[Rfam]
RNA: BsrC
Organism: Falsibacillus albus
RNA sequence: AAUACCUAAAACAACGAAAGCCCUACCUCUCUUUCAUCCUUACGGCUCCUAGACCGUGCCAGUGUGAAUCAGGUAUCUUAUACACCC
Numbered sequence: 001a002a003u004a005c006c007u008a009a010a011a012c013a014a015c016g017a018a019a020g021c022c023c024u025a026c027c028u029c030u031c032u033u034u035c036a037u038c039c040u041u042a043c044g045g046c047u048c049c050u051a052g053a054c055c056g057u058g059c060c061a062g063u064g065u066g067a068a069u070c071a072g073g074u075a076u077c078u079u080a081u082a083c084a085c086c087c
Base pairs, nucleotide, nucleotide: 034067035066036065039062040061041058042057043056044055045054047052